[Rfam]
RNA sequence: GACAGGGUUAGCAGGCUGAUAUUGUCGGGCGGGGUGUGGUGGUUGUAAUCAUUUCGGCGAUGAGAUCAGCCUGUCGAACCCGGU
Numbered sequence: 001g002a003c004a005g006g007g008u009u010a011g012c013a014g015g016c017u018g019a020u021a022u023u024g025u026c027g028g029g030c031g032g033g034g035u036g037u038g039g040u041g042g043u044u045g046u047a048a049u050c051a052u053u054u055c056g057g058c059g060a061u062g063a064g065a066u067c068a069g070c071c072u073g074u075c076g077a078a079c080c081c082g083g084u
Base pairs, nucleotide, nucleotide: 002084003083005081006080007079008078011074012073013072014071015070016069017068018067019066020065022063023062024061025060026059033055034054036052037051038050
The record is an 84-nucleotide RNA from Neodiprion lecontei, which matches "mir-6012 microRNA precursor family" in Rfam. Gene Ontology terms of the family: miRNA-mediated post-transcriptional gene silencing and RISC complex.